[Rfam]
RNA sequence: UGGCUCCAGAAAUCAAGGGUGGGUAAGACCUGGUAAGCAAGCGUUAAGGCGACCCAUACUUGGUUUCAGGGGCUG
Numbered sequence: 001u002g003g004c005u006c007c008a009g010a011a012a013u014c015a016a017g018g019g020u021g022g023g024u025a026a027g028a029c030c031u032g033g034u035a036a037g038c039a040a041g042c043g044u045u046a047a048g049g050c051g052a053c054c055c056a057u058a059c060u061u062g063g064u065u066u067c068a069g070g071g072g073c074u075g
Stems, first nucleotide, its partner, number of pairs: 002074006009067006016060002021055004029049003
A member of the RNA family "mir-551 microRNA precursor family" from Dryobates pubescens, 75 nucleotides long.
Gene Ontology terms of the family: miRNA-mediated post-transcriptional gene silencing and RISC complex.
It scores 84 bits against the family's covariance model.
On this family, see Murchison et al., Genome Res 2008: "Conservation of small RNA pathways in platypus".